[Rfam]
The family of this 114-nucleotide RNA from Dissostichus mawsoni is "Potassium channel RNA editing signal".
Nucleotides: 114
Stems, first nucleotide, its partner, number of pairs: 001114002004111002007108005013102004018097001021095002037077004049063003
Number, partner (000 for none) and nucleotide at each position: 001114g002113u003000g004111g005110g006000u007108u008107a009106c010105g011104g012000a013102g014101a015100c016099a017000u018097g019000c020000g021095g022094c023000c024000g025000g026000u027000g028000a029000c030000a031000g032000u033000g034000g035000g036000g037077g038076g039075g040074a041000a042000g043000a044000u045000c046000g047000u048000g049063g050062g051061u052000u053000c054000g055000c056000u057000g058000u059000g060000c061051g062050c063049c064000a065000u066000c067000g068000c069000c070000g071000g072000a073000g074040u075039u076038u077037u078000a079000a080000c081000c082000a083000u084000c085000g086000c087000u088000c089000u090000a091000c092000c093000u094022g095021u096000u097018c098000c099016u100015g101014u102013c103000a104011u105010c106009g107008u108007g109000u110005c111004c112000a113002a114001c

The family's RNA type in Rfam is cis-regulatory element. It scores 105 bits against the family's covariance model.